[Rfam]
RNA sequence: AGAACGCACAAUAAUUAUCCCUGGGACCAUGGGAUAAACAAAAACCUAGCAAAACCAAGUUAGCACACCCUAGAAUGCUUUUGGCACGAUUACUAACCUAUGUCUCUAAUACCAGUUGAAGGGAAAAAUCC
Numbered sequence: 001a002g003a004a005c006g007c008a009c010a011a012u013a014a015u016u017a018u019c020c021c022u023g024g025g026a027c028c029a030u031g032g033g034a035u036a037a038a039c040a041a042a043a044a045c046c047u048a049g050c051a052a053a054a055c056c057a058a059g060u061u062a063g064c065a066c067a068c069c070c071u072a073g074a075a076u077g078c079u080u081u082u083g084g085c086a087c088g089a090u091u092a093c094u095a096a097c098c099u100a101u102g103u104c105u106c107u108a109a110u111a112c113c114a115g116u117u118g119a120a121g122g123g124a125a126a127a128a129u130c131c
Base pairs, nucleotide, nucleotide: 009121012118013117014116015115016114022108023107024106025105028102029101030100031099032098033097049085053080054079056077057076060073061072062071063070
Background: Shown here is a 131-nucleotide RNA from Vitis vinifera, a member of the family "MIR845_2 microRNA precursor family". Rfam 15.1 lists 180 matches to the family in 2 species.